A member of the RNA family "glycine-GGAnGA riboswitch aptamer" from Crassaminicella thermophila, 194 nucleotides long. It scores 112 bits against the family's covariance model. glycine-GGAnGA riboswitch is a variant of glycine riboswitch that have in common a U69A change. This riboswitch is associate with genes that encode either saccharopine dehydrogenase or amino acid transporters and other genes with not predicted function. On this family, see Weinberg et al., Proc Natl Acad Sci U S A 2017: "Bioinformatic analysis of riboswitch structures uncovers variant classes with altered ligand specificity". Clan: Glycine riboswitch clan.

RNA sequence: CCAGAUGAGAAUAGUGCGAGAUAUCUUUUGGAAGAUAGCCGAAGAAGCAAUAUAAAAAGAAAUUGUCAAUCUUUUUAUAGAAACUUUCAGGCAAAGGGAGCCCUAUUUGAUGGAACUCUGGAGAGUCCGAUGAUUCGGCGCCGAAGGAGGAAUACGUAUGAUACGUAGAAACUCUCAGGUUAAAUGACAGAGGA
Numbered sequence: 001c002c003a004g005a006u007g008a009g010a011a012u013a014g015u016g017c018g019a020g021a022u023a024u025c026u027u028u029u030g031g032a033a034g035a036u037a038g039c040c041g042a043a044g045a046a047g048c049a050a051u052a053u054a055a056a057a058a059g060a061a062a063u064u065g066u067c068a069a070u071c072u073u074u075u076u077a078u079a080g081a082a083a084c085u086u087u088c089a090g091g092c093a094a095a096g097g098g099a100g101c102c103c104u105a106u107u108u109g110a111u112g113g114a115a116c117u118c119u120g121g122a123g124a125g126u127c128c129g130a131u132g133a134u135u136c137g138g139c140g141c142c143g144a145a146g147g148a149g150g151a152a153u154a155c156g157u158a159u160g161a162u163a164c165g166u167a168g169a170a171a172c173u174c175u176c177a178g179g180u181u182a183a184a185u186g187a188c189a190g191a192g193g194a
Base pairs, nucleotide, nucleotide: 001113002112003111010107011106012105013104014103016101017100022037024035025034026033027032038092039091040090044088045086046085047084051079052078053077054076055075056074057073058072059071060070116192117191118190119189120188125139127138128137129136130135140180141179142178146176148173149172